RNA sequence: UGCGACCUCCACAAAUGGUGUAGUCUCCCAGCUUGGUGCUAUUUUACCAUAUUCUGAAUAC
Numbered sequence: 001u002g003c004g005a006c007c008u009c010c011a012c013a014a015a016u017g018g019u020g021u022a023g024u025c026u027c028c029c030a031g032c033u034u035g036g037u038g039c040u041a042u043u044u045u046a047c048c049a050u051a052u053u054c055u056g057a058a059u060a061c
Base pairs, nucleotide, nucleotide: 017045018044020042021041022040023039024038026036027035
This 61-nucleotide RNA from Phoenix dactylifera belongs to the Rfam family "Plastid-psbN 5UTR RNA". The base pairs follow the family's consensus structure, which was predicted with LocARNA. By type it is a cis-regulatory element. It scores 53 bits against the family's covariance model. Plastid psbN is a non-coding RNA (ncRNA) recognised in plastids. It was reported as a conserved 11 stem-loop in the prime untranslated region (5UTR) of psbN genes. It has been reported that the motif is retained in a subset of mature transcripts in barley, which can suggests a possible role in transcript alternative 5 prime processing. Lineage of the source: Eukaryota > Tracheophyta > Mesangiospermae > Arecales > Phoenix.